A member of the RNA family "mir-395 microRNA precursor family" from Dichanthelium oligosanthes, 106 nucleotides long. The literature on the family includes a 2004 paper in Mol Cell by Jones-Rhoades and Bartel, "Computational Identification of Plant MicroRNAs and Their Targets, Including a Stress-Induced miRNA". Gene Ontology terms of the family: RISC complex and miRNA-mediated post-transcriptional gene silencing. The organism belongs to Dichanthelium, within Eukaryota. The family has 25 seed sequences and 2,798 matches in Rfam 15.1.
RNA sequence: GUGUUGCCAAGAGUUUCCUUCAAGCACUUCACAUGGAGCAUUUUGUUUCCCAUGAGGGAAGUUCAUUGGGUCAAUGUGAAGUGUUUGGAGGAACUCCUGAUGCCAA
Numbered sequence: 001g002u003g004u005u006g007c008c009a010a011g012a013g014u015u016u017c018c019u020u021c022a023a024g025c026a027c028u029u030c031a032c033a034u035g036g037a038g039c040a041u042u043u044u045g046u047u048u049c050c051c052a053u054g055a056g057g058g059a060a061g062u063u064c065a066u067u068g069g070g071u072c073a074a075u076g077u078g079a080a081g082u083g084u085u086u087g088g089a090g091g092a093a094c095u096c097c098u099g100a101u102g103c104c105a106a
Base pairs, nucleotide, nucleotide: 005102006101008099009098011096012095013094014093015092016091017090019088020087022086023085024084025083026082027081028080029079030078031077032076033075034074036072